The family of this 80-nucleotide RNA is "DUF3800-X RNA". It is annotated as a small RNA. Pairs were carried over by alignment from the consensus structure, which is taken from published work.
RNA sequence: AGGUGAGUAAGUCCUCCCGAAAUAAUGAUGAUGCCAUGACUAAUUGACAGGGGUGGGAGCAAGUAGGGGAGGGUUCAGCU
Numbered sequence: 001a002g003g004u005g006a007g008u009a010a011g012u013c014c015u016c017c018c019g020a021a022a023u024a025a026u027g028a029u030g031a032u033g034c035c036a037u038g039a040c041u042a043a044u045u046g047a048c049a050g051g052g053g054u055g056g057g058a059g060c061a062a063g064u065a066g067g068g069g070a071g072g073g074u075u076c077a078g079c080u
Base pairs, nucleotide, nucleotide: 001080002079004077005076006075012073013072014071015070016068017067018066034052035051037049038048